Rfam assigns this 402-nucleotide RNA from Prevotella sp. oral taxon 317 to the family "Bacterial RNase P class A". Taxonomically the source falls in Prevotella sp. oral taxon 317 (Bacteria, Bacteroidota, Bacteroidia, Bacteroidales). The match comes from Rfam's covariance-model search (208 bits).

RNA sequence: GCAGUGGCCCGGCUCUGCCGCUGGCAUCUUAAUGAUGCGAGAGGAAAGUCCGGGCAGCAUAGGACAUCCCACUUCUGAAAAUGGAAGCUGUUGGCGACAACGGGUAAAGGUAGAAGAAAAUAACCGCCCCCUCACGCACCUAUUUGUAGCGUACGUGUUGGGGUAAGGGUGAGAAGGCGGUGUAAGAGACCACCAACCGAUGGGCGAUCAUCGGGUUGUACCUUCUGGGAGCUGCAAGUUCGCGUAUACCAUCGUUUGAAGGUUGUCCGUCUGAAACUCGUUUACGAUGGAGGGUAGAAUGCUUGAGCCUUGGGGCGACCCAUGGCCUAGAUAAAUGGCAGGCACUUUUUUGCCCCACGAGGCAUUAGAGUACAGAACCCGGCUUAUAGGGCCACUGCUUUC
Numbered sequence: 001g002c003a004g005u006g007g008c009c010c011g012g013c014u015c016u017g018c019c020g021c022u023g024g025c026a027u028c029u030u031a032a033u034g035a036u037g038c039g040a041g042a043g044g045a046a047a048g049u050c051c052g053g054g055c056a057g058c059a060u061a062g063g064a065c066a067u068c069c070c071a072c073u074u075c076u077g078a079a080a081a082u083g084g085a086a087g088c089u090g091u092u093g094g095c096g097a098c099a100a101c102g103g104g105u106a107a108a109g110g111u112a113g114a115a116g117a118a119a120a121u122a123a124c125c126g127c128c129c130c131c132u133c134a135c136g137c138a139c140c141u142a143u144u145u146g147u148a149g150c151g152u153a154c155g156u157g158u159u160g161g162g163g164u165a166a167g168g169g170u171g172a173g174a175a176g177g178c179g180g181u182g183u184a185a186g187a188g189a190c191c192a193c194c195a196a197c198c199g200a201u202g203g204g205c206g207a208u209c210a211u212c213g214g215g216u217u218g219u220a221c222c223u224u225c226u227g228g229g230a231g232c233u234g235c236a237a238g239u240u241c242g243c244g245u246a247u248a249c250c251a252u253c254g255u256u257u258g259a260a261g262g263u264u265g266u267c268c269g270u271c272u273g274a275a276a277c278u279c280g281u282u283u284a285c286g287a288u289g290g291a292g293g294g295u296a297g298a299a300u301g302c303u304u305g306a307g308c309c310u311u312g313g314g315g316c317g318a319c320c321c322a323u324g325g326c327c328u329a330g331a332u333a334a335a336u337g338g339c340a341g342g343c344a345c346u347u348u349u350u351u352g353c354c355c356c357a358c359g360a361g362g363c364a365u366u367a368g369a370g371u372a373c374a375g376a377a378c379c380c381g382g383c384u385u386a387u388a389g390g391g392c393c394a395c396u397g398c399u400u401u402c
Stems, first nucleotide, its partner, number of pairs: 001398010011387001012343002015341005021041002024038005046385003050382005055234004062279002067230005072087005088102001090101004103225002108223005124168002126164005133157004176194002179191003196216001197214007238300004249290005274283003307326003311322004